Shown here is a 189-nucleotide RNA from Pseudochelatococcus contaminans, a member of the family "Alphaproteobacterial sRNA ar45". Rfam classes the family as a small RNA. A search with the family's covariance model found it, with a score of 60 bits.

RNA sequence: GCCCAAUUUCGCACGUGCCUGUGGUCGCGUGCCGGUUGGCGGGAUGCCGGACAAGAGGCCGGUUUGCCCGCCCGAUAUGCGGAGACAAGUGUUCCCCGCAUUUUUGACCGACCGGCAGCCGGAGGCGAAACCGGCCCACUCUGCUCUCCGCAGGGGACGGGACUUAAAGCAACGACGGAACGGGCUUUU
Number, nucleotide and partner (000 for none) at each position: 001g185002c184003c183004c182005a000006a000007u000008u000009u175010c174011g173012c000013a000014c000015g000016u171017g170018c169019c000020u000021g000022u000023g164024g163025u162026c161027g000028c159029g158030u157031g000032c000033c000034g000035g000036u000037u000038g000039g071040c070041g069042g068043g067044a000045u000046g063047c062048c061049g060050g059051a000052c000053a000054a000055g000056a000057g000058g000059c050060c049061g048062g047063u046064u000065u000066g000067c043068c042069c041070g040071c039072c000073c000074g000075a000076u000077a000078u000079g097080c000081g095082g094083a093084g000085a000086c000087a000088a000089g000090u000091g000092u000093u083094c082095c081096c000097c079098g000099c155100a000101u000102u000103u000104u000105u000106g000107a000108c000109c000110g000111a000112c000113c000114g000115g000116c000117a000118g000119c000120c000121g000122g000123a000124g000125g000126c000127g000128a000129a000130a000131c000132c000133g000134g000135c000136c000137c000138a000139c000140u000141c000142u000143g000144c000145u000146c000147u000148c000149c000150g000151c000152a000153g000154g000155g099156g000157a030158c029159g028160g000161g026162a025163c024164u023165u000166a000167a000168a000169g018170c017171a016172a000173c011174g010175a009176c000177g000178g000179a000180a000181c000182g004183g003184g002185c001186u000187u000188u000189u000